[Rfam]
Rfam assigns this 129-nucleotide sequence from Fukomys damarensis to the family "Small nucleolar RNA SNORA1". Rfam links the family to the GO terms nucleolus and RNA processing. ACA1 is a member of the H/ACA class of snoRNA that guide the sites of modification of uridines to pseudouridines. A search with the family's covariance model found it, with a score of 75 bits. The source organism's lineage runs through Eukaryota, Metazoa, Glires, Rodentia and Fukomys.
RNA sequence: GGCCUCAUUCUAGGUUAGAAUGGGCUCUGUUGAUUUGUUUCCCUAUGUGGCUAAAAUUGAGACACAGGUAAGUCACGCUUCCAUUACCGCAAAUGAAUUACAGUGGCGACAGUGAGACCUGUGACGUUU
Number, nucleotide and partner (000 for none) at each position: 001g000002g051003c050004c049005u000006c047007a046008u045009u000010c000011u000012a000013g000014g000015u000016u000017a000018g000019a000020a000021u000022g042023g041024g040025c000026u000027c037028u000029g000030u000031u000032g000033a000034u000035u000036u000037g027038u000039u000040u024041c023042c022043c000044u000045a008046u007047g006048u000049g004050g003051c002052u000053a000054a000055a000056a000057u000058u000059g000060a000061g000062a000063c000064a122065c121066a120067g119068g118069u000070a000071a000072g000073u000074c000075a000076c000077g000078c000079u000080u000081c000082c108083a000084u106085u105086a104087c103088c000089g000090c000091a000092a000093a000094u000095g000096a000097a000098u000099u000100a000101c000102a000103g087104u086105g085106g084107c000108g082109a000110c000111a000112g000113u000114g000115a000116g000117a000118c068119c067120u066121g065122u064123g000124a000125c000126g000127u000128u000129u000